[Rfam]
RNA: Manganese Mn2+ riboswitch aptamer (yybP-ykoY)
RNA sequence: ACCCACGUCAUCUGGGGAGUAGCCAGCCGUCCAUCCGGACGGGCCACCGCGUCAACAUACUCGGUCGAGAGGCCGUGGUGCGGUGGAAGCGCAAAGCGCUUGGGCGAGACCAAUGGCAUCGACCCCACGUCCGGGCCGGGCGGCGGGUUUCGAUGUCCGUUGGAAUCGCAACGCC
Numbered sequence: 001a002c003c004c005a006c007g008u009c010a011u012c013u014g015g016g017g018a019g020u021a022g023c024c025a026g027c028c029g030u031c032c033a034u035c036c037g038g039a040c041g042g043g044c045c046a047c048c049g050c051g052u053c054a055a056c057a058u059a060c061u062c063g064g065u066c067g068a069g070a071g072g073c074c075g076u077g078g079u080g081c082g083g084u085g086g087a088a089g090c091g092c093a094a095a096g097c098g099c100u101u102g103g104g105c106g107a108g109a110c111c112a113a114u115g116g117c118a119u120c121g122a123c124c125c126c127a128c129g130u131c132c133g134g135g136c137c138g139g140g141c142g143g144c145g146g147g148u149u150u151c152g153a154u155g156u157c158c159g160u161u162g163g164a165a166u167c168g169c170a171a172c173g174c175c
Stems, first nucleotide, its partner, number of pairs: 027042003045085010062075005